[Rfam]
Shown here is a 71-nucleotide RNA sequence from Rhinopomastus cyanomelas, a member of the family "Small nucleolar RNA SNORD99". Rfam links the family to the GO terms nucleolus and RNA processing. A search with the family's covariance model found it, with a score of 68 bits. The organism belongs to Rhinopomastus, within Eukaryota.

RNA sequence: UCUGGUCAGUGAUGACUCUGUUCUUUGGAGACUGCUGGAUGAAUCCUGCGGAUAUGGGGCUGAGGCCAGGA
Numbered sequence: 001u002c003u004g005g006u007c008a009g010u011g012a013u014g015a016c017u018c019u020g021u022u023c024u025u026u027g028g029a030g031a032c033u034g035c036u037g038g039a040u041g042a043a044u045c046c047u048g049c050g051g052a053u054a055u056g057g058g059g060c061u062g063a064g065g066c067c068a069g070g071a
Base pairs, nucleotide, nucleotide: 001070002069003068004067005066
Dot-bracket structure: (((((............................................................))))).